[Rfam]
RNA sequence: CUGACGGCCCGGGCCCCUCUGGCGGUCGCCCCCGAUCGUGAUGUCGGGCCGCUCUG
Numbered sequence: 001c002u003g004a005c006g007g008c009c010c011g012g013g014c015c016c017c018u019c020u021g022g023c024g025g026u027c028g029c030c031c032c033c034g035a036u037c038g039u040g041a042u043g044u045c046g047g048g049c050c051g052c053u054c055u056g
Base pairs, nucleotide, nucleotide: 006050007049008048009047010046011045012044022039023038024037025036026035027034028033
Shown here is a 56-nucleotide RNA from Phenylobacterium kunshanense, a member of the family "terC RNA". It scores 58 bits against the family's covariance model. It is annotated as a cis-regulatory element. Pairs were carried over by alignment from the consensus structure, which is taken from published work.